[Rfam]
RNA: Eukaryotic large subunit ribosomal RNA, nucleotides 1 to 427
Organism: Hesseltinella vesiculosa
RNA sequence: UAACCUGAAAUCAGACGGGACUACCCGCUGAACUUAAGCAUAUCAAUAAGCGGAGGAAAAGAAAAUAACAAUGAUUCCCCUAGUAACGGCGAGUGAAGAGGGAAAAGCUCAAGUUUGGAAGCUUCGUGGCAUAGCUACGACGCAUUGUAAACUGAAGUUUUUGUGGCAACUGGACAACCGGGUUAAUAAGUCCCUUGGAAUGGGGCAACAUGGAGGGUGAUAUUCCCGUCUUUGGCUUGAGUUUGUGCAGUUAUUACCAUGGAAACGACGAGUCAGGUUGUUUGGGAAUGCAGCCUAAAAUGGGAGGUAAAUCUCUCCUAAAGCUAAAUAUUGGUGCAAGACCGAUAGCGAACAAGUACCGUGAGGGAAAGAUGAAAAGGACUUUGAAAAGAGGGUCAAAAAGUACGUGAAAUUGUUGAAAGGGAAC
Numbered sequence: 001u002a003a004c005c006u007g008a009a010a011u012c013a014g015a016c017g018g019g020a021c022u023a024c025c026c027g028c029u030g031a032a033c034u035u036a037a038g039c040a041u042a043u044c045a046a047u048a049a050g051c052g053g054a055g056g057a058a059a060a061g062a063a064a065a066u067a068a069c070a071a072u073g074a075u076u077c078c079c080c081u082a083g084u085a086a087c088g089g090c091g092a093g094u095g096a097a098g099a100g101g102g103a104a105a106a107g108c109u110c111a112a113g114u115u116u117g118g119a120a121g122c123u124u125c126g127u128g129g130c131a132u133a134g135c136u137a138c139g140a141c142g143c144a145u146u147g148u149a150a151a152c153u154g155a156a157g158u159u160u161u162u163g164u165g166g167c168a169a170c171u172g173g174a175c176a177a178c179c180g181g182g183u184u185a186a187u188a189a190g191u192c193c194c195u196u197g198g199a200a201u202g203g204g205g206c207a208a209c210a211u212g213g214a215g216g217g218u219g220a221u222a223u224u225c226c227c228g229u230c231u232u233u234g235g236c237u238u239g240a241g242u243u244u245g246u247g248c249a250g251u252u253a254u255u256a257c258c259a260u261g262g263a264a265a266c267g268a269c270g271a272g273u274c275a276g277g278u279u280g281u282u283u284g285g286g287a288a289u290g291c292a293g294c295c296u297a298a299a300a301u302g303g304g305a306g307g308u309a310a311a312u313c314u315c316u317c318c319u320a321a322a323g324c325u326a327a328a329u330a331u332u333g334g335u336g337c338a339a340g341a342c343c344g345a346u347a348g349c350g351a352a353c354a355a356g357u358a359c360c361g362u363g364a365g366g367g368a369a370a371g372a373u374g375a376a377a378a379g380g381a382c383u384u385u386g387a388a389a390a391g392a393g394g395g396u397c398a399a400a401a402a403g404u405a406c407g408u409g410a411a412a413u414u415g416u417u418g419a420a421a422g423g424g425a426a427c
Base pairs, nucleotide, nucleotide: 024055025053026052027051028050029049035042036041065072066071076103077102078101079100086094087093106325107324108323109322113152114151115150116149117148119146120145123142124140125139126138127137128136157266158265159263160262161261164259165258166257170250171249172248174246175245176244180238181237182236183235184234185233186232190206192205193204194203195202209213216226217225275296276295277294278293279292280291281290302319303318304317305316306315359366360365382393383392384391385390